A member of the RNA family "Small nucleolar RNA Z155" from Zostera marina, 75 nucleotides long. It is annotated as a C/D-box small nucleolar RNA. On this family, see Chen et al., Nucleic Acids Res 2003: "The high diversity of snoRNAs in plants: identification and comparative study of 120 snoRNA genes from Oryza sativa". Gene Ontology terms of the family: RNA processing and nucleolus.

[Rfam]
RNA sequence: UGUUGAUGUGAUGAUAUAUUUUCACUGAAUUCACUUCUGUUGACUUCAAAUUAGACUACAAUUAUCUGAUCCACG
Numbered sequence: 001u002g003u004u005g006a007u008g009u010g011a012u013g014a015u016a017u018a019u020u021u022u023c024a025c026u027g028a029a030u031u032c033a034c035u036u037c038u039g040u041u042g043a044c045u046u047c048a049a050a051u052u053a054g055a056c057u058a059c060a061a062u063u064a065u066c067u068g069a070u071c072c073a074c075g
Base pairs, nucleotide, nucleotide: 001075002074003073005071006070